[Rfam]
Nucleotides: 153
Base pairs, nucleotide, nucleotide: 005144006143007142008141009140010139011138042059043058044057045056046055061110062109063108064107065106066105121129122128
Number, partner (000 for none) and nucleotide at each position: 001000g002000a003000u004000u005144a006143c007142a008141a009140a010139g011138a012000u013000a014000a015000a016000a017000a018000c019000a020000c021000a022000g023000c024000g025000c026000a027000u028000g029000u030000a031000u032000c033000a034000c035000a036000u037000g038000c039000a040000g041000a042059u043058c044057c045056g046055g047000u048000u049000g050000g051000u052000a053000g054000u055046c056045c057044g058043g059042a060000c061110g062109g063108a064107a065106g066105a067000c068000c069000c070000c071000u072000g073000u074000u075000c076000c077000u078000u079000u080000g081000c082000c083000g084000g085000a086000a087000c088000c089000g090000g091000u092000a093000u094000u095000g096000g097000c098000a099000g100000g101000c102000a103000g104000u105066u106065c107064u108063u109062c110061u111000a112000a113000g114000u115000a116000g117000c118000c119000c120000u121129c122128c123000u124000c125000c126000u127000u128122g129121g130000u131000c132000g133000u134000c135000c136000a137000u138011u139010c140009u141008u142007u143006g144005u145000u146000c147000a148000u149000a150000a151000c152000a153000u